[Rfam]
RNA: Mammalian CPEB3 ribozyme
Organism: Alligator sinensis
RNA sequence: AGUCACAAGUUUGAGGCCAUAGCAGAGGGGCUCAUGGCAUGGCCCUUUCAGAUCCUAGCAAAUCUGCAAAUUCUGCU
Numbered sequence: 001a002g003u004c005a006c007a008a009g010u011u012u013g014a015g016g017c018c019a020u021a022g023c024a025g026a027g028g029g030g031c032u033c034a035u036g037g038c039a040u041g042g043c044c045c046u047u048u049c050a051g052a053u054c055c056u057a058g059c060a061a062a063u064c065u066g067c068a069a070a071u072u073c074u075g076c077u
Stems, first nucleotide, its partner, number of pairs: 013045001015044004021077007028040001030038001049066005